[Rfam]
RNA sequence: AUACUCCUUUAGUUAGGGGUAACCUAGCCAACUGACGUUGUUAGUGAAUAUUUCUUGUUCACACAUUGAUCCGCCGAUGACUUUCUGUCAUUGGCGUUUUUUUU
Numbered sequence: 001a002u003a004c005u006c007c008u009u010u011a012g013u014u015a016g017g018g019g020u021a022a023c024c025u026a027g028c029c030a031a032c033u034g035a036c037g038u039u040g041u042u043a044g045u046g047a048a049u050a051u052u053u054c055u056u057g058u059u060c061a062c063a064c065a066u067u068g069a070u071c072c073g074c075c076g077a078u079g080a081c082u083u084u085c086u087g088u089c090a091u092u093g094g095c096g097u098u099u100u101u102u103u104u
Base pairs, nucleotide, nucleotide: 002021003020004019005018006017040070041069044062045061046060047059048058049057050056074094075093076092077091078090079089080088081087
RNA: Qrr RNA